[Rfam]
RNA: c-di-GMP-I riboswitch aptamer
Organism: Halalkalibacter akibai
RNA sequence: AAUAGUUAAAGGCAAACUAUUUGAAAAAAUAGGACGCAAAGCCUAGGGACUAAGGUUUUAGUGAAAUAUUAACUAAACUAUGUUAGCCUGGUUACCAAA
Numbered sequence: 001a002a003u004a005g006u007u008a009a010a011g012g013c014a015a016a017c018u019a020u021u022u023g024a025a026a027a028a029a030u031a032g033g034a035c036g037c038a039a040a041g042c043c044u045a046g047g048g049a050c051u052a053a054g055g056u057u058u059u060a061g062u063g064a065a066a067u068a069u070u071a072a073c074u075a076a077a078c079u080a081u082g083u084u085a086g087c088c089u090g091g092u093u094a095c096c097a098a099a
Stems, first nucleotide, its partner, number of pairs: 012037002017032006040093004045089003048084003055078004